[Rfam]
RNA sequence: CACUUCUGGUUCCCUUUCCCGGGGGAUCUGAACACCUGUCCCGGUGGUCGUAAAAGGAGGACUAGUUAUACUGAAGCUGUCCUCACGAGGCCUGUAGUCUGCUUUAUAGCAUGCGGGCUAGUUUCAAACAAGG
Numbered sequence: 001c002a003c004u005u006c007u008g009g010u011u012c013c014c015u016u017u018c019c020c021g022g023g024g025g026a027u028c029u030g031a032a033c034a035c036c037u038g039u040c041c042c043g044g045u046g047g048u049c050g051u052a053a054a055a056g057g058a059g060g061a062c063u064a065g066u067u068a069u070a071c072u073g074a075a076g077c078u079g080u081c082c083u084c085a086c087g088a089g090g091c092c093u094g095u096a097g098u099c100u101g102c103u104u105u106a107u108a109g110c111a112u113g114c115g116g117g118c119u120a121g122u123u124u125c126a127a128a129c130a131a132g133g
Stems, first nucleotide, its partner, number of pairs: 003060005019047003025040003077121003081117003093111003
The record is a 133-nucleotide sequence from Balaenoptera physalus, which matches "Small nucleolar RNA SNORA61" in Rfam. ACA61 is a member of the H/ACA class of snoRNA that guide the sites of modification of uridines to pseudouridines. Lineage of the source: Eukaryota > Laurasiatheria > Artiodactyla > Cetacea > Balaenoptera. By type it is an H/ACA-box small nucleolar RNA.